Rfam assigns this 123-nucleotide RNA from Planotetraspora silvatica to the family "TPP riboswitch aptamer (THI element)". It scores 59 bits against the family's covariance model. Vitamin B(1) in its active form thiamin pyrophosphate (TPP) is an essential coenzyme that is synthesised by coupling of pyrimidine and thiazole moieties in bacteria. Gene Ontology term of the family: thiamine pyrophosphate binding.
[Rfam]
RNA sequence: UUUAAAUACCGCGGGAGCUCGGGCGACACCGGGCUGAGAGGGCGGCUCCUCCACGAGGCGCGCCGCCGACCGCAUGAACCUGUCCGGAUAAUGCCGGCGUAGGGAGUGUGCGAUGACGUCCGC
Numbered sequence: 001u002u003u004a005a006a007u008a009c010c011g012c013g014g015g016a017g018c019u020c021g022g023g024c025g026a027c028a029c030c031g032g033g034c035u036g037a038g039a040g041g042g043c044g045g046c047u048c049c050u051c052c053a054c055g056a057g058g059c060g061c062g063c064c065g066c067c068g069a070c071c072g073c074a075u076g077a078a079c080c081u082g083u084c085c086g087g088a089u090a091a092u093g094c095c096g097g098c099g100u101a102g103g104g105a106g107u108g109u110g111c112g113a114u115g116a117c118g119u120c121c122g123c
Stems, first nucleotide, its partner, number of pairs: 007110003011073004017034005041067005079103004084097004